[Rfam]
RNA sequence: ACUGGAAAAUUGUUGGUGUUCUUUUUCCAAAACACAGCCAGGUGAUAAAAGUUCCAGAUCCUGGCAGAUCCCUUGAGCCCGGGGGUUCUGGGCUGCAGUGGGGCUAUGCCGAUCGGGUGUCCGCACUAAGUUCGGCAUCAAUAUGGUGAGCCCCCGGGAGCGGGGGGGCCACCAGGUUGCCUAAGGAGGGGCGAACUGGCGGAAACGGAGCAGGUCAAAGCUCCCAUGCCGAUCAGUAGUGGGAUCGCGCCUGUGAGUAGCCGCUGUACCCCAGCCGGGGCGAUAUGGGGAAACCCAGUCUCAG
Number, nucleotide and partner (000 for none) at each position: 001a052002c051003u050004g022005g021006a020007a019008a000009a017010u016011u015012g000013u000014u000015g011016g010017u009018g000019u007020u006021c005022u004023u049024u048025u000026u000027c000028c000029a000030a000031a000032a000033c000034a000035c000036a000037g000038c000039c000040a000041g000042g000043u000044g000045a000046u000047a000048a024049a023050a003051g002052u001053u000054c000055c000056a000057g302058a301059u000060c000061c298062u297063g296064g295065c000066a000067g000068a000069u291070c290071c289072c288073u287074u000075g000076a000077g281078c280079c279080c278081g000082g276083g275084g000085g000086u000087u000088c274089u273090g272091g271092g270093c000094u268095g267096c266097a265098g264099u263100g262101g000102g000103g261104c260105u259106a258107u257108g000109c255110c000111g000112a000113u000114c253115g252116g251117g250118u249119g248120u247121c243122c242123g000124c241125a240126c239127u238128a237129a000130g234131u000132u232133c231134g230135g229136c228137a227138u226139c179140a178141a177142u176143a000144u174145g173146g172147u171148g170149a000150g000151c167152c166153c165154c163155c162156g161157g000158g000159a000160g000161c156162g155163g154164g000165g153166g152167g151168g000169c000170c148171a147172c146173c145174a144175g000176g142177u141178u140179g139180c186181c185182u000183a000184a000185g181186g180187a000188g224189g223190g222191g221192c220193g000194a000195a000196c000197u217198g216199g000200c207201g206202g000203a000204a000205a000206c201207g200208g000209a000210g000211c000212a000213g000214g000215u000216c198217a197218a000219a000220g192221c191222u190223c189224c188225c000226a138227u137228g136229c135230c134231g133232a132233u000234c130235a000236g000237u128238a127239g126240u125241g124242g122243g121244a000245u000246c000247g120248c119249g118250c117251c116252u115253g114254u000255g109256a000257g107258u106259a105260g104261c103262c100263g099264c098265u097266g096267u095268a094269c000270c092271c091272c090273a089274g088275c083276c082277g000278g080279g079280g078281c077282g000283a000284u000285a000286u000287g073288g072289g071290g070291a069292a000293a000294c000295c064296c063297a062298g061299u000300c000301u058302c057303a000304g000
The family of this 304-nucleotide RNA sequence from Sarcophilus harrisii is "Metazoan signal recognition particle RNA". The family's consensus secondary structure is taken from published work. The signal recognition particle (SRP) is a universally conserved ribonucleoprotein. Rfam 15.1 lists 383,523 matches to the family in 1,221 species. The organism belongs to Sarcophilus, within Eukaryota. A reference for the family is Regalia et al. (2002), "Prediction of signal recognition particle RNA genes", Nucleic Acids Res. Rfam classes the family as a non-coding RNA gene. A search with the family's covariance model found it, with a score of 172 bits.